The family of this 100-nucleotide sequence from Phaeomoniella chlamydospora is "A. fumigatus snoRNA Afu_263".
A reference for the family is Jochl et al. (2008), "Small ncRNA transcriptome analysis from Aspergillus fumigatus suggests a novel mechanism for regulation of protein synthesis", Nucleic Acids Res.
Its Rfam clan is "SNORD77 clan".
The organism belongs to Phaeomoniella, within Eukaryota.

[Rfam]
RNA sequence: CAAGCAUGUGAUGAACAACCUUUCAAAUGCAUAGUUCAACUGAGACUGCAUGUCAGUCCAUGAACGAUAACCUAUUACCAUCUUUCACCAUUAUCUGAGU
Numbered sequence: 001c002a003a004g005c006a007u008g009u010g011a012u013g014a015a016c017a018a019c020c021u022u023u024c025a026a027a028u029g030c031a032u033a034g035u036u037c038a039a040c041u042g043a044g045a046c047u048g049c050a051u052g053u054c055a056g057u058c059c060a061u062g063a064a065c066g067a068u069a070a071c072c073u074a075u076u077a078c079c080a081u082c083u084u085u086c087a088c089c090a091u092u093a094u095c096u097g098a099g100u
Stems, first nucleotide, its partner, number of pairs: 006021001008019001009017002034065005044058004
Dot-bracket structure: .....(.(((.....)).).)............(((((.....((((.......))))..)))))...................................